The record is a 97-nucleotide RNA from Sphingomicrobium sediminis, which matches "Glycine riboswitch aptamer" in Rfam. About the family: This family represents the bacterial glycine riboswitch. The source organism's lineage runs through Bacteria, Pseudomonadati, Sphingomonadales, Sphingomicrobiaceae and Sphingomicrobium. The match comes from Rfam's covariance-model search (62 bits).
RNA sequence: GGGGGCCAUGCGGGAGAGGUCGCGGUAUGAAUGUGCUGCGGCGCCGAAGGAGCAACCGCCCCCGGAAUCUCUCAGGCAGACGGACCGUCUGGCCCCA
Dot-bracket structure: .....(((.((((......((((((..........)))))).(((((..(((...(.......)....))))).))).......)))).))).....